The record is an 81-nucleotide sequence from Paenibacillus ginsengarvi, which matches "ZMP/ZTP riboswitch aptamer (pfl RNA motif)" in Rfam. A search with the family's covariance model found it, with a score of 64 bits. Taxonomically the source falls in Paenibacillus (Bacteria, Bacillati, Bacillota, Paenibacillaceae).

RNA sequence: UCGGUUAGGUGCGACUGGCGUAAACGUGGAGUACCACGAGGAAUCACCUAGCCUCAUAUGCCGUUCGCCUGGGCAAAGUAU
Numbered sequence: 001u002c003g004g005u006u007a008g009g010u011g012c013g014a015c016u017g018g019c020g021u022a023a024a025c026g027u028g029g030a031g032u033a034c035c036a037c038g039a040g041g042a043a044u045c046a047c048c049u050a051g052c053c054u055c056a057u058a059u060g061c062c063g064u065u066c067g068c069c070u071g072g073g074c075a076a077a078g079u080a081u
Stems, first nucleotide, its partner, number of pairs: 003053009015041002017069004026037004059075004
Dot-bracket structure: ..(((((((((...(([[[[.....((((....))))..))...))))))))).....((((...]]]]..))))......